Selenocysteine transfer RNA: an 86-nucleotide RNA sequence from Acrobeloides nanus. The base pairs follow the family's consensus structure, which is taken from published work. It scores 70 bits against the family's covariance model. The source organism's lineage runs through Eukaryota, Metazoa, Eumetazoa, Rhabditida and Acrobeloides.
RNA sequence: GCCGGCGUGAGCUGCGGUGGUCCGCGGUGCAGGCUUCAAACCUGUAGAGCAUGAGAGUGCUAGACGUUCAAUUCGUCCUCGCCGGU
Numbered sequence: 001g002c003c004g005g006c007g008u009g010a011g012c013u014g015c016g017g018u019g020g021u022c023c024g025c026g027g028u029g030c031a032g033g034c035u036u037c038a039a040a041c042c043u044g045u046a047g048a049g050c051a052u053g054a055g056a057g058u059g060c061u062a063g064a065c066g067u068u069c070a071a072u073u074c075g076u077c078c079u080c081g082c083c084g085g086u
Base pairs, nucleotide, nucleotide: 001086002085003084004083005082006081007080009078012027013026014025015024016023017022028046029045030044031043032042033041048061049060050059051058052057063077064076065075066074